RNA sequence: AUUUCCACGGCUGCAUCGAGAGUAUACUCAUCUUCAGCAGGACUUAGAAUUCCUGGAGAGUUGCCUUUGUGAAAAGCUGGCAAUAAUUUCUUUAAGUUCCGUCUCUUAGUUUUCCUUGUAAGUAUUCAUGGUUGUUGGGCUAAUCUUGUUACGAAUUACUAAGUAUCU
Numbered sequence: 001a002u003u004u005c006c007a008c009g010g011c012u013g014c015a016u017c018g019a020g021a022g023u024a025u026a027c028u029c030a031u032c033u034u035c036a037g038c039a040g041g042a043c044u045u046a047g048a049a050u051u052c053c054u055g056g057a058g059a060g061u062u063g064c065c066u067u068u069g070u071g072a073a074a075a076g077c078u079g080g081c082a083a084u085a086a087u088u089u090c091u092u093u094a095a096g097u098u099c100c101g102u103c104u105c106u107u108a109g110u111u112u113u114c115c116u117u118g119u120a121a122g123u124a125u126u127c128a129u130g131g132u133u134g135u136u137g138g139g140c141u142a143a144u145c146u147u148g149u150u151a152c153g154a155a156u157u158a159c160u161a162a163g164u165a166u167c168u
Base pairs, nucleotide, nucleotide: 006080010077011076012075016071017069018068019067020066022064023063024062026061027060039054040053041052042051086166088165090163091162092161098155100153101152102151
Background: Shown here is a 168-nucleotide RNA from Hipposideros armiger, a member of the family "ODC internal ribosome entry site (IRES)". Rfam 15.1 lists 437 matches to the family in 128 species. The match comes from Rfam's covariance-model search (88 bits). Lineage of the source: Eukaryota > Bilateria > Craniata > Rhinolophoidea > Hipposideros. Its family is annotated with ribosome binding in the Gene Ontology.